Small nucleolar RNA SNORD56: a 70-nucleotide sequence from Otolemur garnettii.
RNA sequence: UUACAAUGAUGGCAAUAUCUUCCAUCAACAGCAGUUUACUAUUAAAUUUUGAUACUUUGGGUCUGAGUGA
Numbered sequence: 001u002u003a004c005a006a007u008g009a010u011g012g013c014a015a016u017a018u019c020u021u022c023c024a025u026c027a028a029c030a031g032c033a034g035u036u037u038a039c040u041a042u043u044a045a046a047u048u049u050u051g052a053u054a055c056u057u058u059g060g061g062u063c064u065g066a067g068u069g070a
Stems, first nucleotide, its partner, number of pairs: 002069003008026004
The family's consensus secondary structure was predicted with PFOLD. Taxonomically the source falls in Otolemur (Eukaryota, Eumetazoa, Dipnotetrapodomorpha, Boreoeutheria).